[Rfam]
RNA sequence: CAGGCGGGUCGCUCUGCGGCUCCAAGCUGCCGGACGCCCAGGCGGCCCAUGAAAGCACCCAGACCCUGAUGCCGACGGUCCUCGGCGGGGUGAACUUCGUGCUCCACGCUG
Numbered sequence: 001c002a003g004g005c006g007g008g009u010c011g012c013u014c015u016g017c018g019g020c021u022c023c024a025a026g027c028u029g030c031c032g033g034a035c036g037c038c039c040a041g042g043c044g045g046c047c048c049a050u051g052a053a054a055g056c057a058c059c060c061a062g063a064c065c066c067u068g069a070u071g072c073c074g075a076c077g078g079u080c081c082u083c084g085g086c087g088g089g090g091u092g093a094a095c096u097u098c099g100u101g102c103u104c105c106a107c108g109c110u111g
Stems, first nucleotide, its partner, number of pairs: 036043001044073003088109001090107002